[Rfam]
RNA sequence: GUACUGCAUUAAGAACGUUAUAGACGUACCAACCGACAAACUCAUUGCACGGUGGUUUUGAAUGCGGGUGUCUCUACCAAAAUAAUGAGAAAU
Number, nucleotide and partner (000 for none) at each position: 001g000002u000003a000004c000005u000006g065007c064008a063009u062010u061011a000012a000013g000014a000015a027016c026017g025018u000019u023020a000021u000022a000023g019024a000025c017026g016027u015028a056029c055030c054031a000032a000033c052034c051035g050036a000037c047038a046039a000040a000041c089042u088043c087044a086045u000046u038047g037048c000049a000050c035051g034052g033053u000054g030055g029056u028057u000058u000059u000060g000061a010062a009063u008064g007065c006066g000067g078068g077069u076070g075071u000072c000073u000074c000075u070076a069077c068078c067079a000080a000081a000082a000083u000084a000085a000086u044087g043088a042089g041090a000091a000092a000093u000
RNA: SAM-I/IV (S-adenosyl methionine) riboswitch aptamer